[Rfam]
RNA sequence: UGAGGCCAAUGAUGAUUUAAACAUAUUUUGCCUACAUUGCUUGAGUAUCUCACUUGGAUGAGAUAAUGAUAAACUGAAAUGUAUCUGAGGCCUCU
Numbered sequence: 001u002g003a004g005g006c007c008a009a010u011g012a013u014g015a016u017u018u019a020a021a022c023a024u025a026u027u028u029u030g031c032c033u034a035c036a037u038u039g040c041u042u043g044a045g046u047a048u049c050u051c052a053c054u055u056g057g058a059u060g061a062g063a064u065a066a067u068g069a070u071a072a073a074c075u076g077a078a079a080u081g082u083a084u085c086u087g088a089g090g091c092c093u094c095u
Stems, first nucleotide, its partner, number of pairs: 002094001004092004

The family of this 95-nucleotide RNA sequence from Prunus yedoensis is "Small nucleolar RNA SNORD34". Rfam's curators write: snoRNA U34 is found in intron 5 of the ribosomal protein L13a gene in humans. For this family Rfam cites "Purified box C/D snoRNPs are able to reproduce site-specific 2'-O-methylation of target RNA in vitro" (Galardi et al., Mol Cell Biol, 2002). Gene Ontology terms of the family: nucleolus and RNA processing.